The family of this 214-nucleotide sequence from Acidithiobacillus caldus is "Group II catalytic intron D1-D4-6".
Group II introns are found in rRNA, tRNA and mRNA of organelles in fungi, plants and protists, and also in mRNA in bacteria.
Rfam 15.1 lists 1,617 matches to the family in 661 species.
Rfam links the family to the GO term Group II intron splicing.
[Rfam]
RNA sequence: CGACGCCCUCCCGGCAAAGGCGGAGCCCGUCAGCCGGAAGCGAGUCUUGCCUGGGGCCGGUAACGGACCUCUUGAAGCGUAGACAGCGGGCACUAACGCCGUGUAUUAGCCCCGAAAUCAUAAUCGCCGAAGUCUUCAUCGUGUUGGGCGUGGGGACAGCAUCGGAACGCCCGGUAUGGCCAGGGUGUUGCGAUUCGACCGGGGUCUCGGAGCA
Numbered sequence: 001c002g003a004c005g006c007c008c009u010c011c012c013g014g015c016a017a018a019g020g021c022g023g024a025g026c027c028c029g030u031c032a033g034c035c036g037g038a039a040g041c042g043a044g045u046c047u048u049g050c051c052u053g054g055g056g057c058c059g060g061u062a063a064c065g066g067a068c069c070u071c072u073u074g075a076a077g078c079g080u081a082g083a084c085a086g087c088g089g090g091c092a093c094u095a096a097c098g099c100c101g102u103g104u105a106u107u108a109g110c111c112c113c114g115a116a117a118u119c120a121u122a123a124u125c126g127c128c129g130a131a132g133u134c135u136u137c138a139u140c141g142u143g144u145u146g147g148g149c150g151u152g153g154g155g156a157c158a159g160c161a162u163c164g165g166a167a168c169g170c171c172c173g174g175u176a177u178g179g180c181c182a183g184g185g186u187g188u189u190g191c192g193a194u195u196c197g198a199c200c201g202g203g204g205u206c207u208c209g210g211a212g213c214a
Base pairs, nucleotide, nucleotide: 011037012036013035014034015033019031020030021029022028025180026179040087041086044084045083046082047081048079049078050074053071054069055068057066058065059064109205110204111203112202113201114200126199128197129196130195131194132157133156134155137152138151139150162193163192164191166189167188168187169186170185171184172183
Background: It scores 115 bits against the family's covariance model.